[Rfam]
RNA sequence: GUCGAGCUCAGCAACGCGGGCUUGUGAUCCAAGUGGAGACAAUAAGGUGAUGGGACGUUGGAUCGAUCUCACUGGGCCGGGUUCGGAGUGGGCUAAAUUCUGGCUUGCCCAUUCCAAGUUGGGAGUUGAGGCAUGGGGUUUGAGCGAAGGCUUGGAUCUCUUGUCUCCUAGAGUGGGGGAGACCGAGUGAGGCUGGUUUCACAGAGCAGCGUCCACCUCCCGCUCUUGACGGUGGAAGGAUCACGAGCCAUUGCUUUCCGAUCCCACUAUGACCCAAUAAGCCGACUCCGAUUGGACCAUCAUCUUU
Numbered sequence: 001g002u003c004g005a006g007c008u009c010a011g012c013a014a015c016g017c018g019g020g021c022u023u024g025u026g027a028u029c030c031a032a033g034u035g036g037a038g039a040c041a042a043u044a045a046g047g048u049g050a051u052g053g054g055a056c057g058u059u060g061g062a063u064c065g066a067u068c069u070c071a072c073u074g075g076g077c078c079g080g081g082u083u084c085g086g087a088g089u090g091g092g093c094u095a096a097a098u099u100c101u102g103g104c105u106u107g108c109c110c111a112u113u114c115c116a117a118g119u120u121g122g123g124a125g126u127u128g129a130g131g132c133a134u135g136g137g138g139u140u141u142g143a144g145c146g147a148a149g150g151c152u153u154g155g156a157u158c159u160c161u162u163g164u165c166u167c168c169u170a171g172a173g174u175g176g177g178g179g180a181g182a183c184c185g186a187g188u189g190a191g192g193c194u195g196g197u198u199u200c201a202c203a204g205a206g207c208a209g210c211g212u213c214c215a216c217c218u219c220c221c222g223c224u225c226u227u228g229a230c231g232g233u234g235g236a237a238g239g240a241u242c243a244c245g246a247g248c249c250a251u252u253g254c255u256u257u258c259c260g261a262u263c264c265c266a267c268u269a270u271g272a273c274c275c276a277a278u279a280a281g282c283c284g285a286c287u288c289c290g291a292u293u294g295g296a297c298c299a300u301c302a303u304c305u306u307u
Base pairs, nucleotide, nucleotide: 001040002039003038004023005022006021007020008019009018028037029036030035044306045305046304047303048302049301050300051299052298053297056294057293058291059290060289061287063285064284065283068281069280071278073276075274076273078271079265080264081263083261084260085259086258088257090256091255092254094253095252101250102249103248104247105246106245107244109239110238112237113236114235115234116233118230119229120228121227122226123225124224125223126222128167129166130165131164132163133162135160136159137158138157139156140155141154142153143152144151145150168173175220176219177218178217179216185212187210188209193204194203195202
RNA: Plant signal recognition particle RNA
Organism: Capsella rubella